[Rfam]
Rfam assigns this 378-nucleotide sequence from Facklamia languida to the family "Bacterial RNase P class B". Its family is annotated with dimeric ribonuclease P complex, tRNA processing and ribonuclease P activity in the Gene Ontology. NCBI's taxonomy places the organism under Bacteria, Bacillota, Bacilli, Facklamia, Facklamia languida. The match comes from Rfam's covariance-model search (298 bits).
RNA sequence: AAUUUUAGGUAAUCGCGGUCUUAAUUGGCUGAGGAAAGUCCAUGCUCGCACAAGCUGAAAUGCUUGUAGUGUUCGUGCUUAGCGAAACAAUAAGCUAAGGUAGUCUUAUGACUAACGGCCGAAGAAAUUUCUAAGGGUCUCCUAGGAAAGAGUAUUCGAUAACGUGCCACAGUGACGAUACUUUGUGGAAACGCAGAGGUGAAACGCGGUAAACCCCUCGAGCGAGCAACCCAAAUUUGGUAGGGGCACUCUUUGAAAGGAACGGCUACCCUGUAGCCGGCUAACUGAAGAAGAGACAAGAAAUCUUGUAGAUAGAUGAUUACCCCAUCGAUGGCUGGCACCUAUCCUGCCAUCGGUGACAGAACAUGGCUUAUCGAA
Numbered sequence: 001a002a003u004u005u006u007a008g009g010u011a012a013u014c015g016c017g018g019u020c021u022u023a024a025u026u027g028g029c030u031g032a033g034g035a036a037a038g039u040c041c042a043u044g045c046u047c048g049c050a051c052a053a054g055c056u057g058a059a060a061u062g063c064u065u066g067u068a069g070u071g072u073u074c075g076u077g078c079u080u081a082g083c084g085a086a087a088c089a090a091u092a093a094g095c096u097a098a099g100g101u102a103g104u105c106u107u108a109u110g111a112c113u114a115a116c117g118g119c120c121g122a123a124g125a126a127a128u129u130u131c132u133a134a135g136g137g138u139c140u141c142c143u144a145g146g147a148a149a150g151a152g153u154a155u156u157c158g159a160u161a162a163c164g165u166g167c168c169a170c171a172g173u174g175a176c177g178a179u180a181c182u183u184u185g186u187g188g189a190a191a192c193g194c195a196g197a198g199g200u201g202a203a204a205c206g207c208g209g210u211a212a213a214c215c216c217c218u219c220g221a222g223c224g225a226g227c228a229a230c231c232c233a234a235a236u237u238u239g240g241u242a243g244g245g246g247c248a249c250u251c252u253u254u255g256a257a258a259g260g261a262a263c264g265g266c267u268a269c270c271c272u273g274u275a276g277c278c279g280g281c282u283a284a285c286u287g288a289a290g291a292a293g294a295g296a297c298a299a300g301a302a303a304u305c306u307u308g309u310a311g312a313u314a315g316a317u318g319a320u321u322a323c324c325c326c327a328u329c330g331a332u333g334g335c336u337g338g339c340a341c342c343u344a345u346c347c348u349g350c351c352a353u354c355g356g357u358g359a360c361a362g363a364a365c366a367u368g369g370c371u372u373a374u375c376g377a378a
Stems, first nucleotide, its partner, number of pairs: 004378003007374001008324007016031005036372003040369005045226005050067006073221003077217001078099006100116001101114005117216002120158004128149004135143003164214002166210003181198007230245003249295006296309005327357009

Rfam describes the family as follows. Ribonuclease P (RNase P) is a ubiquitous endoribonuclease, found in archaea, bacteria and eukarya as well as chloroplasts and mitochondria. Its best characterised activity is the generation of mature 5'-ends of tRNAs by cleaving the 5'-leader elements of precursor-tRNAs. Cellular RNase Ps are ribonucleoproteins.